[Rfam]
RNA sequence: UUGCCCAAGGAGCGUUGCAGCGGCGCGCAUCGAACACGAUGCGCCCGCCAGGCUUGGGUGCAACAACGGCGCUCACUCCCC
Numbered sequence: 001u002u003g004c005c006c007a008a009g010g011a012g013c014g015u016u017g018c019a020g021c022g023g024c025g026c027g028c029a030u031c032g033a034a035c036a037c038g039a040u041g042c043g044c045c046c047g048c049c050a051g052g053c054u055u056g057g058g059u060g061c062a063a064c065a066a067c068g069g070c071g072c073u074c075a076c077u078c079c080c081c
Stems, first nucleotide, its partner, number of pairs: 002060007021047003024043003
Shown here is an 81-nucleotide RNA, a member of the family "SAH (S-adenosyl-L-homocysteine) riboswitch aptamer". The literature on the family includes a 2008 paper in Mol Cell by Wang et al., "Riboswitches that sense S-adenosylhomocysteine and activate genes involved in coenzyme recycling".